A member of the RNA family "Lysine riboswitch aptamer" from Loigolactobacillus coryniformis, 179 nucleotides long. About the family: Riboswitches are metabolite binding domains within certain messenger RNAs that serve as precision sensors for their corresponding targets. Allosteric rearrangement of mRNA structure is mediated by ligand binding, and this results in modulation of gene expression. This family includes riboswitches that sense lysine in a number of genes involved in lysine metabolism, including lysC. On this family, see Mandal et al., Cell 2003: "Riboswitches Control Fundamental Biochemical Pathways in Bacillus subtilis and Other Bacteria". A search with the family's covariance model found it, with a score of 114 bits.
[Rfam]
RNA sequence: CAAUUAGAUUGAGGUUGCAGAGAUCAUGAGUCACCAGUCGGAGGCGAAAAGCGUCAUUGAGGGCUGGCAAAAGGGUGAUCUGCCGAAAUGCUUAAUUGCUUUUUCAAUUAAGUGUUGGGGCUUGGCUGAAUAAGUCAAGUACUGUCGUGAUGAAGUCAUCACGGGGCGCUAUCGACUGA
Numbered sequence: 001c002a003a004u005u006a007g008a009u010u011g012a013g014g015u016u017g018c019a020g021a022g023a024u025c026a027u028g029a030g031u032c033a034c035c036a037g038u039c040g041g042a043g044g045c046g047a048a049a050a051g052c053g054u055c056a057u058u059g060a061g062g063g064c065u066g067g068c069a070a071a072a073g074g075g076u077g078a079u080c081u082g083c084c085g086a087a088a089u090g091c092u093u094a095a096u097u098g099c100u101u102u103u104u105c106a107a108u109u110a111a112g113u114g115u116u117g118g119g120g121c122u123u124g125g126c127u128g129a130a131u132a133a134g135u136c137a138a139g140u141a142c143u144g145u146c147g148u149g150a151u152g153a154a155g156u157c158a159u160c161a162c163g164g165g166g167c168g169c170u171a172u173c174g175a176c177u178g179a
Stems, first nucleotide, its partner, number of pairs: 007173003011169001017083005025075001034067006087116012117143002120140008145164007